RNA: transfer-messenger RNA
Organism: Rhodococcus sp. Leaf258
RNA sequence: GGGGCUGAACGGUUUCGACUGUGUGCGUCUAGUCAGGGGAAGCGUGCCGGUGCAGGCGAGAGACCACCGCAAGCGUCAUCGCAAAAAUAUAAGCGCCGAUUCCAAUCAGCGCGACUACGCACUCGCUGCCUAAGUAGCGACUGCGUGUCUGUCAGUCCGAUCUUGCCCUCGGGUCGGGUACUGGCAUCAGCUAGAGGGCUCACCUGGUCACUCGGUCACGGAGUGAUGUGGGACAUCAAACAGUGGCUGGGAUCGUCAUCCAGGCUUGUCUGCGAGAUCUGGAGAUCCGAGUAGAGGCUCAGCAGACUGCGCACGGAGAAGCCCUGGCAAACCGACACAGGACCCGGGUUCGAUUCCCGGCAGCUCCACCG
Numbered sequence: 001g002g003g004g005c006u007g008a009a010c011g012g013u014u015u016c017g018a019c020u021g022u023g024u025g026c027g028u029c030u031a032g033u034c035a036g037g038g039g040a041a042g043c044g045u046g047c048c049g050g051u052g053c054a055g056g057c058g059a060g061a062g063a064c065c066a067c068c069g070c071a072a073g074c075g076u077c078a079u080c081g082c083a084a085a086a087a088u089a090u091a092a093g094c095g096c097c098g099a100u101u102c103c104a105a106u107c108a109g110c111g112c113g114a115c116u117a118c119g120c121a122c123u124c125g126c127u128g129c130c131u132a133a134g135u136a137g138c139g140a141c142u143g144c145g146u147g148u149c150u151g152u153c154a155g156u157c158c159g160a161u162c163u164u165g166c167c168c169u170c171g172g173g174u175c176g177g178g179u180a181c182u183g184g185c186a187u188c189a190g191c192u193a194g195a196g197g198g199c200u201c202a203c204c205u206g207g208u209c210a211c212u213c214g215g216u217c218a219c220g221g222a223g224u225g226a227u228g229u230g231g232g233a234c235a236u237c238a239a240a241c242a243g244u245g246g247c248u249g250g251g252a253u254c255g256u257c258a259u260c261c262a263g264g265c266u267u268g269u270c271u272g273c274g275a276g277a278u279c280u281g282g283a284g285a286u287c288c289g290a291g292u293a294g295a296g297g298c299u300c301a302g303c304a305g306a307c308u309g310c311g312c313a314c315g316g317a318g319a320a321g322c323c324c325u326g327g328c329a330a331a332c333c334g335a336c337a338c339a340g341g342a343c344c345c346g347g348g349u350u351c352g353a354u355u356c357c358c359g360g361c362a363g364c365u366c367c368a369c370c371g
Stems, first nucleotide, its partner, number of pairs: 001367007019340006027332002030330001032328007043315005048069005056082004121142001123140007150186006156178008165199006203231002207227005214248006250288005256282003265276002268307004274299001344360005